This 97-nucleotide sequence from Streptomyces beijiangensis belongs to the Rfam family "Glycine riboswitch aptamer".
[Rfam]
RNA sequence: CGAAUCCGCGCGGGAGAGUCCCCGGUCCACAGACCGGGGCGCCGAAGGAGCAAGUCCCUCCCUUGUAAUCUCUCAGGCCCCGUACCGCGCGCGACGA
Numbered sequence: 001c002g003a004a005u006c007c008g009c010g011c012g013g014g015a016g017a018g019u020c021c022c023c024g025g026u027c028c029a030c031a032g033a034c035c036g037g038g039g040c041g042c043c044g045a046a047g048g049a050g051c052a053a054g055u056c057c058c059u060c061c062c063u064u065g066u067a068a069u070c071u072c073u074c075a076g077g078c079c080c081c082g083u084a085c086c087g088c089g090c091g092c093g094a095c096g097a
Base pairs, nucleotide, nucleotide: 007091008090009089010088011087012086013085020039021038022037023036041078042077043076044074045073048072049071050070054066055065
A search with the family's covariance model found it, with a score of 60 bits.
Rfam links the family to the GO term glycine biosynthetic process.